Shown here is a 73-nucleotide sequence from Liparis tanakae, a member of the family "mir-101 microRNA precursor family".
The organism belongs to Liparis, within Eukaryota.
A search with the family's covariance model found it, with a score of 74 bits.
The base pairs follow the family's consensus structure, which was predicted with RNAalifold.
The literature on the family includes a 2002 paper in Genes Dev by Mourelatos et al., "miRNPs: a novel class of ribonucleoproteins containing numerous microRNAs".

RNA sequence: CGCCCUGGUUCAGUUAUGACAGUUCUGAUGCUGUCUGUCGAAGGUACAGUACUGUGAUAACUGAAGGAUGGCU
Numbered sequence: 001c002g003c004c005c006u007g008g009u010u011c012a013g014u015u016a017u018g019a020c021a022g023u024u025c026u027g028a029u030g031c032u033g034u035c036u037g038u039c040g041a042a043g044g045u046a047c048a049g050u051a052c053u054g055u056g057a058u059a060a061c062u063g064a065a066g067g068a069u070g071g072c073u
Stems, first nucleotide, its partner, number of pairs: 011063007019055005025049001027047001029046004